[Rfam]
RNA sequence: GGACUGUGACGAUUGACAUUAAAGGUCUCGUUCGUCGUAAUAUAGGCCUUUAUAGUCUAUUUGACGACCAUUACAAUAUUCUGAGUCC
Number, nucleotide and partner (000 for none) at each position: 001g088002g087003a086004c085005u000006g000007u000008g000009a000010c000011g000012a000013u000014u000015g000016a000017c000018a000019u000020u000021a000022a000023a000024g000025g000026u000027c000028u000029c000030g000031u000032u000033c000034g000035u000036c000037g000038u000039a000040a000041u000042a000043u000044a000045g000046g000047c000048c000049u000050u000051u000052a060053u000054a000055g000056u000057c000058u000059a000060u052061u000062u000063g000064a000065c000066g000067a000068c000069c000070a000071u000072u000073a000074c000075a000076a000077u000078a000079u000080u000081c000082u000083g000084a000085g004086u003087c002088c001
RNA: Small nucleolar RNA Z43
Organism: Arabis alpina